[Rfam]
Shown here is an 86-nucleotide RNA sequence from Methylotuvimicrobium alcaliphilum, a member of the family "c-di-GMP-I riboswitch aptamer". A search with the family's covariance model found it, with a score of 80 bits.
RNA sequence: AUCAUAAAAGGGCAAAACCACCGAAAGGUGGUGACGCAAAGUUUCCAGUCUAACGGAGUUAUUCCUAUGACAGUGGGAUUGCUAAA
Numbered sequence: 001a002u003c004a005u006a007a008a009a010g011g012g013c014a015a016a017a018c019c020a021c022c023g024a025a026a027g028g029u030g031g032u033g034a035c036g037c038a039a040a041g042u043u044u045c046c047a048g049u050c051u052a053a054c055g056g057a058g059u060u061a062u063u064c065c066u067a068u069g070a071c072a073g074u075g076g077g078a079u080u081g082c083u084a085a086a
Base pairs, nucleotide, nucleotide: 012037013036017032018031019030020029021028022027040080041079042078043077045076046075047074048071049070050069055065056064057063058062

Lineage of the source: Bacteria > Pseudomonadati > Pseudomonadota > Methylococcales > Methylotuvimicrobium alcaliphilum.
About the family: GEMM was predicted in a large-scale screen for bacterial structured RNA regulatory elements.
The base pairs follow the family's consensus structure, which is taken from published work.